Shown here is an 85-nucleotide RNA sequence from Pectinatus brassicae, a member of the family "ZMP/ZTP riboswitch aptamer (pfl RNA motif)". The literature on the family includes a 2015 paper in Chem Biol by Trausch et al., "Metal Ion-Mediated Nucleobase Recognition by the ZTP Riboswitch". The family's consensus secondary structure is taken from published work. The source organism's lineage runs through Bacteria, Bacillati, Negativicutes, Selenomonadales and Pectinatus.

Nucleotides: 085
Base pairs, nucleotide, nucleotide: 004055005054006053007052008051009050010049011048012047016044018073019072020071021070022069028041029040030039031038064078065077066076
Number, partner (000 for none) and nucleotide at each position: 001000u002000a003000u004055g005054u006053a007052a008051u009050a010049c011048g012047g013000g014000a015000c016044c017000u018073g019072a020071c021070g022069g023000a024000u025000a026000a027000u028041g029040u030039g031038g032000a033000a034000u035000u036000g037000a038031c039030c040029a041028c042000a043000u044016g045000g046000a047012c048011u049010g050009u051008a052007u053006u054005g055004c056000u057000g058000u059000g060000a061000u062000a063000a064078g065077c066076c067000g068000a069022c070021c071020g072019u073018c074000u075000g076066g077065g078064c079000a080000a081000g082000a083000a084000a085000u